[Rfam]
RNA: mir-16 microRNA precursor family
RNA sequence: GGCACCUUAUAGACUAACAGAAGUAUUGGCGCAUAAGCUUUCUUGGGUUAUGCUCCAAUACUUCUGUUAGUCUAUAAGGUGCC
Numbered sequence: 001g002g003c004a005c006c007u008u009a010u011a012g013a014c015u016a017a018c019a020g021a022a023g024u025a026u027u028g029g030c031g032c033a034u035a036a037g038c039u040u041u042c043u044u045g046g047g048u049u050a051u052g053c054u055c056c057a058a059u060a061c062u063u064c065u066g067u068u069a070g071u072c073u074a075u076a077a078g079g080u081g082c083c
Base pairs, nucleotide, nucleotide: 001083002082003081005079006078007077010076011073012072013071014070015069016068017067018066020063022062023061024060025059026058027057028056029055